[Rfam]
RNA sequence: CCGCGGCGGUUAGGAGGUUCUCCUUCUUUUCUAACCCUAACUCGCUGUCGGCUUCGAUGGCGUUUAUCCUCUUUCGCUGUUUUACUCGCUGACUUUCAGCGAACCGAAGCUCCGAAAAAAAAAAACGUCAGCGAUUCGGGGGAACCUCCUCCGCUAGCCGGCCGCGCGUCGGUUUCCCCUGUUUCUCCGCUUUGGGCGUGCUGGCUUCGGAGCCGGCGCCGCCGCCCCCACUCGAGGCCGCGGUCAGCCUGGUCCGGGCCGUUGCUGCCGCGAAGGGUUCGGCCCUGCUCGCCUCGGGGGCGGCGAGUCUCACCGAAGGGCGGAGGACCGGGGAAAAAAAAGGGGCUCGCAAGGGCCCGGCGCGAGAGCAAAAACGGGCGGCGCCUCCUGCCUCGCUCGCCCCUGAGUAGUGGGGUGAGCGGCGGGCGUCGUCCGGACACUC
Numbered sequence: 001c002c003g004c005g006g007c008g009g010u011u012a013g014g015a016g017g018u019u020c021u022c023c024u025u026c027u028u029u030u031c032u033a034a035c036c037c038u039a040a041c042u043c044g045c046u047g048u049c050g051g052c053u054u055c056g057a058u059g060g061c062g063u064u065u066a067u068c069c070u071c072u073u074u075c076g077c078u079g080u081u082u083u084a085c086u087c088g089c090u091g092a093c094u095u096u097c098a099g100c101g102a103a104c105c106g107a108a109g110c111u112c113c114g115a116a117a118a119a120a121a122a123a124a125a126c127g128u129c130a131g132c133g134a135u136u137c138g139g140g141g142g143a144a145c146c147u148c149c150u151c152c153g154c155u156a157g158c159c160g161g162c163c164g165c166g167c168g169u170c171g172g173u174u175u176c177c178c179c180u181g182u183u184u185c186u187c188c189g190c191u192u193u194g195g196g197c198g199u200g201c202u203g204g205c206u207u208c209g210g211a212g213c214c215g216g217c218g219c220c221g222c223c224g225c226c227c228c229c230a231c232u233c234g235a236g237g238c239c240g241c242g243g244u245c246a247g248c249c250u251g252g253u254c255c256g257g258g259c260c261g262u263u264g265c266u267g268c269c270g271c272g273a274a275g276g277g278u279u280c281g282g283c284c285c286u287g288c289u290c291g292c293c294u295c296g297g298g299g300g301c302g303g304c305g306a307g308u309c310u311c312a313c314c315g316a317a318g319g320g321c322g323g324a325g326g327a328c329c330g331g332g333g334a335a336a337a338a339a340a341a342g343g344g345g346c347u348c349g350c351a352a353g354g355g356c357c358c359g360g361c362g363c364g365a366g367a368g369c370a371a372a373a374a375c376g377g378g379c380g381g382c383g384c385c386u387c388c389u390g391c392c393u394c395g396c397u398c399g400c401c402c403c404u405g406a407g408u409a410g411u412g413g414g415g416u417g418a419g420c421g422g423c424g425g426g427c428g429u430c431g432u433c434c435g436g437a438c439a440c441u442c
Stems, first nucleotide, its partner, number of pairs: 004157001005155005012150006019143005051110005073103007088132006094125003166363007205318006212311001219303005226298003230294001239272005245267004251260003274286004376434011393422005400415004
RNA: Vertebrate telomerase RNA